[Rfam]
Shown here is a 99-nucleotide sequence from Clostridium bornimense, a member of the family "Glycine riboswitch aptamer".
RNA sequence: GGACGAGCCCUUGGAGAGACUCAUUGAUAGAAUGAGCACCGAAGGAGCAAGAUAGAUUAAACUAUCGAAACUCUCAGGUAAAAGGACAGGGGAGAGGAG
Numbered sequence: 001g002g003a004c005g006a007g008c009c010c011u012u013g014g015a016g017a018g019a020c021u022c023a024u025u026g027a028u029a030g031a032a033u034g035a036g037c038a039c040c041g042a043a044g045g046a047g048c049a050a051g052a053u054a055g056a057u058u059a060a061a062c063u064a065u066c067g068a069a070a071c072u073c074u075c076a077g078g079u080a081a082a083a084g085g086a087c088a089g090g091g092g093a094g095a096g097g098a099g
Stems, first nucleotide, its partner, number of pairs: 008092006020036004038079003041075002045073003051066004